[Rfam]
RNA: Small nucleolar RNA SNORA75
Organism: Hucho hucho
RNA sequence: UUCUUCUCAUGAGCUCCUCCUGUCCACACAGUGACAGUGAAUGGAUUCGCACGAGAAGUAGAGCCAAAUCACAGUCAAACAGGCGCCUACCUUGACCUCAGUGGCAGUUUGCCCAUGUCUGAUGUGAAACAAAA
Numbered sequence: 001u002u003c004u005u006c007u008c009a010u011g012a013g014c015u016c017c018u019c020c021u022g023u024c025c026a027c028a029c030a031g032u033g034a035c036a037g038u039g040a041a042u043g044g045a046u047u048c049g050c051a052c053g054a055g056a057a058g059u060a061g062a063g064c065c066a067a068a069u070c071a072c073a074g075u076c077a078a079a080c081a082g083g084c085g086c087c088u089a090c091c092u093u094g095a096c097c098u099c100a101g102u103g104g105c106a107g108u109u110u111g112c113c114c115a116u117g118u119c120u121g122a123u124g125u126g127a128a129a130c131a132a133a134a
Stems, first nucleotide, its partner, number of pairs: 003058006013050002015045003020037005069127005087107002090104002